Shown here is a 98-nucleotide sequence from Brevundimonas sp., a member of the family "Glycine riboswitch aptamer".
Gene Ontology term of the family: glycine biosynthetic process.
The match comes from Rfam's covariance-model search (63 bits).
RNA sequence: AACGCUCUCGCGGGAGAGAUCGAAGGUCGAAGACGGCCUUCGGAGCCGAAGGCGCAACCGCCCCGGAAACGCUCAGGCAAAAGGACCGCGAAAGCGCA
Numbered sequence: 001a002a003c004g005c006u007c008u009c010g011c012g013g014g015a016g017a018g019a020u021c022g023a024a025g026g027u028c029g030a031a032g033a034c035g036g037c038c039u040u041c042g043g044a045g046c047c048g049a050a051g052g053c054g055c056a057a058c059c060g061c062c063c064c065g066g067a068a069a070c071g072c073u074c075a076g077g078c079a080a081a082a083g084g085a086c087c088g089c090g091a092a093a094g095c096g097c098a
Base pairs, nucleotide, nucleotide: 006093008091009090010089011088012087013086020043021042022041023040024039025038026037045078046077047076048074049073052072053071054070058066059065